[Rfam]
This 129-nucleotide sequence from Sciurus carolinensis belongs to the Rfam family "Small nucleolar RNA SNORA40". A reference for the family is Ofengand and Bakin (1997), "Mapping to nucleotide resolution of pseudouridine residues in large subunit ribosomal RNAs from representative eukaryotes, prokaryotes, archaebacteria, mitochondria and chloroplasts", J Mol Biol. NCBI's taxonomy places the organism under Eukaryota, Teleostomi, Euteleostomi, Theria, Sciurus. It scores 54 bits against the family's covariance model. By type it is an H/ACA-box small nucleolar RNA.
Nucleotides: 129
Base pairs, nucleotide, nucleotide: 003052004051006049008047009046012039013038015036016035017034018033019032024030068123069122071120072119074117075116080108081107082105083104084103085102086101087100089098
Number, partner (000 for none) and nucleotide at each position: 001000a002000g003052u004051a005000c006049u007000u008047g009046u010000g011000u012039g013038u014000g015036u016035u017034u018033g019032u020000u021000u022000a023000a024030c025000u026000u027000g028000u029000u030024g031000g032019a033018c034017a035016a036015a037000g038013a039012u040000u041000u042000a043000u044000c045000u046009a047008c048000u049006g050000a051004u052003a053000a054000a055000a056000a057000a058000a059000a060000g061000u062000a063000a064000a065000c066000c067000c068123u069122u070000u071120u072119u073000u074117u075116g076000c077000a078000a079000c080108c081107a082105g083104a084103a085102c086101u087100c088000a089098u090000u091000g092000u093000u094000c095000a096000g097000u098089a099000a100087g101086a102085g103084u104083u105082u106000g107081u108080g109000a110000u111000a112000c113000a114000u115000g116075u117074a118000u119072g120071a121000a122069a123068a124000a125000a126000u127000a128000u129000u